[Rfam]
The record is a 75-nucleotide RNA sequence from Zea mays, which matches "Small nucleolar RNA U54" in Rfam. Its family is annotated with nucleolus and RNA processing in the Gene Ontology.
RNA sequence: UGCUCAAUGAUUCAACCAUGGAUUUUAUAUGCUAUUCUGAUCUACACAAGGAUGUCAUCAAUAUUUCUGAGAGCA
Numbered sequence: 001u002g003c004u005c006a007a008u009g010a011u012u013c014a015a016c017c018a019u020g021g022a023u024u025u026u027a028u029a030u031g032c033u034a035u036u037c038u039g040a041u042c043u044a045c046a047c048a049a050g051g052a053u054g055u056c057a058u059c060a061a062u063a064u065u066u067c068u069g070a071g072a073g074c075a
Stems, first nucleotide, its partner, number of pairs: 001075005
The family's RNA type in Rfam is C/D-box small nucleolar RNA.